Background:
The record is a 90-nucleotide sequence from Vulpes vulpes, which matches "mir-8799 microRNA precursor family" in Rfam. The family is grouped with related families in Rfam's "mir-8791 microRNA precursor clan".
[Rfam]
RNA sequence: GGGGGGAGGUCGGAUCCUGGGCUGUGUCACCGGCGCCCUGUGCUCCGGGCCUGCGCUCUUGUAUUUGCGCUCCCGGCCAUGCAGCCCCCU
Numbered sequence: 001g002g003g004g005g006g007a008g009g010u011c012g013g014a015u016c017c018u019g020g021g022c023u024g025u026g027u028c029a030c031c032g033g034c035g036c037c038c039u040g041u042g043c044u045c046c047g048g049g050c051c052u053g054c055g056c057u058c059u060u061g062u063a064u065u066u067g068c069g070c071u072c073c074c075g076g077c078c079a080u081g082c083a084g085c086c087c088c089c090u
Base pairs, nucleotide, nucleotide: 001090002089003088004087005086006085009082010081012078013077016076017075019073020072021071023069024068025067026066027063030061032057033056034055035054036053040051042050043049044048
Rfam 15.1 lists 20,638 matches to the family in 5 species. Rfam links the family to the GO terms miRNA-mediated post-transcriptional gene silencing and RISC complex. Pairs were carried over by alignment from the consensus structure, which was predicted with RNAalifold.